[Rfam]
RNA sequence: AGCCUGUGAUGAUUUGCUUUGACUUCUGACACCUCGUAUGAACUCUGCACACGCAGUCUGAUUAUUUUGCAAGACUGAGGCUU
Numbered sequence: 001a002g003c004c005u006g007u008g009a010u011g012a013u014u015u016g017c018u019u020u021g022a023c024u025u026c027u028g029a030c031a032c033c034u035c036g037u038a039u040g041a042a043c044u045c046u047g048c049a050c051a052c053g054c055a056g057u058c059u060g061a062u063u064a065u066u067u068u069g070c071a072a073g074a075c076u077g078a079g080g081c082u083u
Base pairs, nucleotide, nucleotide: 001082002081003080004079045056046055047054048053

Shown here is an 83-nucleotide RNA sequence from Tupaia belangeri, a member of the family "Small nucleolar RNA SNORD60". It is annotated as a C/D-box small nucleolar RNA. The organism belongs to Tupaia, within Eukaryota. Rfam links the family to the GO terms nucleolus and RNA processing.